[Rfam]
RNA sequence: AAACUUACCUGGCAGGGGAGAUACCAUGAUCAUGAAGGUGGUUUUCCCAGGGCAAGGCUUAGUCAUUGCACUCCGGGUGUUUUGACCUCUGCAAUUUCCCCAAAUGUGGGAAACUUGACUGCAUAAUUUGUGGUAGUGGGGGACUGUGUUUGUGCUUUCCCCUG
Numbered sequence: 001a002a003a004c005u006u007a008c009c010u011g012g013c014a015g016g017g018g019a020g021a022u023a024c025c026a027u028g029a030u031c032a033u034g035a036a037g038g039u040g041g042u043u044u045u046c047c048c049a050g051g052g053c054a055a056g057g058c059u060u061a062g063u064c065a066u067u068g069c070a071c072u073c074c075g076g077g078u079g080u081u082u083u084g085a086c087c088u089c090u091g092c093a094a095u096u097u098c099c100c101c102a103a104a105u106g107u108g109g110g111a112a113a114c115u116u117g118a119c120u121g122c123a124u125a126a127u128u129u130g131u132g133g134u135a136g137u138g139g140g141g142g143a144c145u146g147u148g149u150u151u152g153u154g155c156u157u158u159c160c161c162c163u164g
Stems, first nucleotide, its partner, number of pairs: 012122004016048006023042005049090004056083002060079002063076002092117003095113003099109002138163006146155003

A member of the RNA family "U1 spliceosomal RNA" from Sapajus apella, 164 nucleotides long.
For this family Rfam cites "Mechanism of 5' splice site transfer for human spliceosome activation" (Charenton et al., Science, 2019).
Clan: U1 clan.
The family's consensus secondary structure is taken from published work.